The family of this 225-nucleotide RNA sequence from Burkholderiales bacterium JOSHI_001 is "Group II catalytic intron D1-D4-6".
The family has 174 seed sequences and 1,617 matches in Rfam 15.1.
The base pairs follow the family's consensus structure.
Lineage of the source: Bacteria > Pseudomonadati > Pseudomonadota > Betaproteobacteria > Burkholderiales.

RNA sequence: GAAGUCCGCUACGAUGAAGCAGUAGCGAACCCCAUCGGCCUCCGAGCCAUGCACAUAUGCCCGCGUGGGCGUCGUCGAAGCGUCGGCUGAGGCACAAAUAGGCCAGCCGUCGAGCCUCGAAAGUUUGGGUUGGACCUGGGCGCUGACGUCGUCGUAAAGGCGGAAAGUAACCCAGCCGGCUGCACCAUCCCAAGCGCUCGAACGGCCUGGCGUGGUGUACGACAC
Numbered sequence: 001g002a003a004g005u006c007c008g009c010u011a012c013g014a015u016g017a018a019g020c021a022g023u024a025g026c027g028a029a030c031c032c033c034a035u036c037g038g039c040c041u042c043c044g045a046g047c048c049a050u051g052c053a054c055a056u057a058u059g060c061c062c063g064c065g066u067g068g069g070c071g072u073c074g075u076c077g078a079a080g081c082g083u084c085g086g087c088u089g090a091g092g093c094a095c096a097a098a099u100a101g102g103c104c105a106g107c108c109g110u111c112g113a114g115c116c117u118c119g120a121a122a123g124u125u126u127g128g129g130u131u132g133g134a135c136c137u138g139g140g141c142g143c144u145g146a147c148g149u150c151g152u153c154g155u156a157a158a159g160g161c162g163g164a165a166a167g168u169a170a171c172c173c174a175g176c177c178g179g180c181u182g183c184a185c186c187a188u189c190c191c192a193a194g195c196g197c198u199c200g201a202a203c204g205g206c207c208u209g210g211c212g213u214g215g216u217g218u219a220c221g222a223c224a225c
Stems, first nucleotide, its partner, number of pairs: 012037005019031001023193001025191001039092004046087003050082002052077001057072006114216003118212002136210006142168003147162004173204001177200003181196003